[Rfam]
RNA sequence: UGACGGGGACCCGCACAAGCGGUGGAUGAUGUGGAUUAAUUCGAUGCAACGCGAAAAACCUUACCUACCCUUGACAUGUCUAGAAUCCCGAAGAGAUUUGGGAGUGCUUGAAAAAGAACUAGAACACAGGUGCUGCAUGGCUGUCGUCAGCUCGUGUCGUGAGAUGUUGGGUUAAGUCCCGCAACGAGCGCAACCCUUGUCAUUAGUUGCUACGAAAGGGCACUCUAAUGAAACUGCCGGUGACAAACCGGAGGAAGGUGGGGAUGAUGUCAAGUCCUCAUGGCCCUUAUGGGUAGGGCUUCACACGUCAUACAAUGGUCGGGACAGAGGGUCGCCAACCCGCGAGGGGGAGCUAAUCCCAGAAACCCGAUCGUAGUCCGGAUCGUAGUCUGCAACUCGACUACGUGAAGUCGGAAUCGCUAGUAAUCGCAGAUCAGCAUGCUGCGGUGAAUACGUUCUCGGGUCUUGUACACACCGCCCGUCACACCAUGGGAGUGGGUUUUACCAGAAGUAGUUAGCCUAACCGAAAGGAGGGCGAUUACCACGGUAGGAUUCAUGACUGGGGUGAAGUCGUAACAAGG
Numbered sequence: 001u002g003a004c005g006g007g008g009a010c011c012c013g014c015a016c017a018a019g020c021g022g023u024g025g026a027u028g029a030u031g032u033g034g035a036u037u038a039a040u041u042c043g044a045u046g047c048a049a050c051g052c053g054a055a056a057a058a059c060c061u062u063a064c065c066u067a068c069c070c071u072u073g074a075c076a077u078g079u080c081u082a083g084a085a086u087c088c089c090g091a092a093g094a095g096a097u098u099u100g101g102g103a104g105u106g107c108u109u110g111a112a113a114a115a116g117a118a119c120u121a122g123a124a125c126a127c128a129g130g131u132g133c134u135g136c137a138u139g140g141c142u143g144u145c146g147u148c149a150g151c152u153c154g155u156g157u158c159g160u161g162a163g164a165u166g167u168u169g170g171g172u173u174a175a176g177u178c179c180c181g182c183a184a185c186g187a188g189c190g191c192a193a194c195c196c197u198u199g200u201c202a203u204u205a206g207u208u209g210c211u212a213c214g215a216a217a218g219g220g221c222a223c224u225c226u227a228a229u230g231a232a233a234c235u236g237c238c239g240g241u242g243a244c245a246a247a248c249c250g251g252a253g254g255a256a257g258g259u260g261g262g263g264a265u266g267a268u269g270u271c272a273a274g275u276c277c278u279c280a281u282g283g284c285c286c287u288u289a290u291g292g293g294u295a296g297g298g299c300u301u302c303a304c305a306c307g308u309c310a311u312a313c314a315a316u317g318g319u320c321g322g323g324a325c326a327g328a329g330g331g332u333c334g335c336c337a338a339c340c341c342g343c344g345a346g347g348g349g350g351a352g353c354u355a356a357u358c359c360c361a362g363a364a365a366c367c368c369g370a371u372c373g374u375a376g377u378c379c380g381g382a383u384c385g386u387a388g389u390c391u392g393c394a395a396c397u398c399g400a401c402u403a404c405g406u407g408a409a410g411u412c413g414g415a416a417u418c419g420c421u422a423g424u425a426a427u428c429g430c431a432g433a434u435c436a437g438c439a440u441g442c443u444g445c446g447g448u449g450a451a452u453a454c455g456u457u458c459u460c461g462g463g464u465c466u467u468g469u470a471c472a473c474a475c476c477g478c479c480c481g482u483c484a485c486a487c488c489a490u491g492g493g494a495g496u497g498g499g500u501u502u503u504a505c506c507a508g509a510a511g512u513a514g515u516u517a518g519c520c521u522a523a524c525c526g527a528a529a530g531g532a533g534g535g536c537g538a539u540u541a542c543c544a545c546g547g548u549a550g551g552a553u554u555c556a557u558g559a560c561u562g563g564g565g566u567g568a569a570g571u572c573g574u575a576a577c578a579a580g581g
Stems, first nucleotide, its partner, number of pairs: 001472002003469003007466007015456002019420005024313001026311008034302002040055004064297007077126002079123005086103007105118001107116002129286002132284004138280002140275003143271001145269002150189006156165003168181004195263004200231007210220002234254002237251005317372007329360003334353002339348003379410001384405007426448007475580001477577001480573002485567004490562003495557012511542006518536004524531002